The family of this 142-nucleotide RNA sequence from Drosophila mojavensis is "Small nucleolar RNA snoR639/H1". A reference for the family is Giordano et al. (1999), "minifly, a Drosophila gene required for ribosome biogenesis", J Cell Biol. Gene Ontology terms of the family: nucleolus and RNA processing. snoR639 or snoH1 belongs to the H/ACA class of snoRNAs which are thought to guide the sites of modification of uridines to pseudouridines. snoH1 is found in an intron of the mfl gene in Drosophila. The family's RNA type in Rfam is H/ACA-box small nucleolar RNA. The match comes from Rfam's covariance-model search (126 bits).

[Rfam]
RNA sequence: ACCCCAAGAUAUUAAGCCGGCAGUCGUUCGUAUUUUAACCAGCGGCGACUGUGACUAUGACUGGGAACAGAAAUGCCGCUGAUGUGUGUAUGUUGGUGUUGCGCCCACCAUGCGUAUCUGACAAAGUAAUUUUCAGACGACA
Numbered sequence: 001a002c003c004c005c006a007a008g009a010u011a012u013u014a015a016g017c018c019g020g021c022a023g024u025c026g027u028u029c030g031u032a033u034u035u036u037a038a039c040c041a042g043c044g045g046c047g048a049c050u051g052u053g054a055c056u057a058u059g060a061c062u063g064g065g066a067a068c069a070g071a072a073a074u075g076c077c078g079c080u081g082a083u084g085u086g087u088g089u090a091u092g093u094u095g096g097u098g099u100u101g102c103g104c105c106c107a108c109c110a111u112g113c114g115u116a117u118c119u120g121a122c123a124a125a126g127u128a129a130u131u132u133u134c135a136g137a138c139g140a141c142a
Stems, first nucleotide, its partner, number of pairs: 020052008079136004091123006101115004